[Rfam]
RNA sequence: GCCGACGUCUUUUGGGAGUAGCCUGCUUUCCGCUGCCGGAAAGCGAACGCGUCAACACACUCGGCCGCCGGCCGUGGCGCGUUCGGCCGAAUCGGUCUGGCGAGACCAGAGGCGCAUCGCGUCGUUCCCGGUCGGACGUCGGCGGAUGCGCCAUGGUUAUCGUCUACGUCCGACCAC
Numbered sequence: 001g002c003c004g005a006c007g008u009c010u011u012u013u014g015g016g017a018g019u020a021g022c023c024u025g026c027u028u029u030c031c032g033c034u035g036c037c038g039g040a041a042a043g044c045g046a047a048c049g050c051g052u053c054a055a056c057a058c059a060c061u062c063g064g065c066c067g068c069c070g071g072c073c074g075u076g077g078c079g080c081g082u083u084c085g086g087c088c089g090a091a092u093c094g095g096u097c098u099g100g101c102g103a104g105a106c107c108a109g110a111g112g113c114g115c116a117u118c119g120c121g122u123c124g125u126u127c128c129c130g131g132u133c134g135g136a137c138g139u140c141g142g143c144g145g146a147u148g149c150g151c152c153a154u155g156g157u158u159a160u161c162g163u164c165u166a167c168g169u170c171c172g173a174c175c176a177c
Stems, first nucleotide, its partner, number of pairs: 026043003045084010062074005
RNA: Manganese Mn2+ riboswitch aptamer (yybP-ykoY)